[Rfam]
RNA sequence: GUCCCUUGGUGAACAUUCAACGCUGUCGGUGAGUUUUGAGCUUCUGUAACAAACCAUCGACCGUUGACUGUAGCCUGAGGGUGGC
Numbered sequence: 001g002u003c004c005c006u007u008g009g010u011g012a013a014c015a016u017u018c019a020a021c022g023c024u025g026u027c028g029g030u031g032a033g034u035u036u037u038g039a040g041c042u043u044c045u046g047u048a049a050c051a052a053a054c055c056a057u058c059g060a061c062c063g064u065u066g067a068c069u070g071u072a073g074c075c076u077g078a079g080g081g082u083g084g085c
Base pairs, nucleotide, nucleotide: 001085002084003083004080005079006078007077008076014070015069017067018066019065020064021063022062025061026060027059028058029057030056031055033054034053035052036051
Dot-bracket structure: ((((((((.....((.((((((..(((((((.((((..............))))))))))))))))).)).....)))))..)))
mir-181 microRNA precursor family: an 85-nucleotide RNA sequence from Sinocyclocheilus anshuiensis.
Gene Ontology terms of the family: RISC complex and miRNA-mediated post-transcriptional gene silencing.
Taxonomically the source falls in Sinocyclocheilus (Eukaryota, Opisthokonta, Deuterostomia, Osteoglossocephalai).
The literature on the family includes a 2001 paper in Cell by Ambros, "microRNAs: tiny regulators with great potential".